[Rfam]
Annotation:
The record is a 54-nucleotide sequence from Sphingomonas sp. Leaf412, which matches "nhaA-I RNA" in Rfam. Taxonomically the source falls in Sphingomonas (Bacteria, Pseudomonadota, Sphingomonadales, Sphingomonadaceae). Pairs were carried over by alignment from the consensus structure, which is taken from published work. Rfam's curators write: Acidobacteria, Alphaproteobacteria, Betaproteobacteria and Gammaproteobacteria, Verrucomicrobia, cand. division NC10. It scores 46 bits against the family's covariance model.

RNA sequence: GGGUGUCCGCUUUCUAGCUGCGGGCAGGUUCUCAGGCUGGUCGGGCCGCCAGCG
Number, nucleotide and partner (000 for none) at each position: 001g000002g000003g000004u000005g025006u024007c023008c022009g021010c020011u000012u000013u000014c000015u000016a000017g000018c000019u000020g010021c009022g008023g007024g006025c005026a000027g000028g000029u000030u000031c000032u000033c000034a000035g000036g053037c052038u051039g050040g049041u048042c000043g000044g000045g000046c000047c000048g041049c040050c039051a038052g037053c036054g000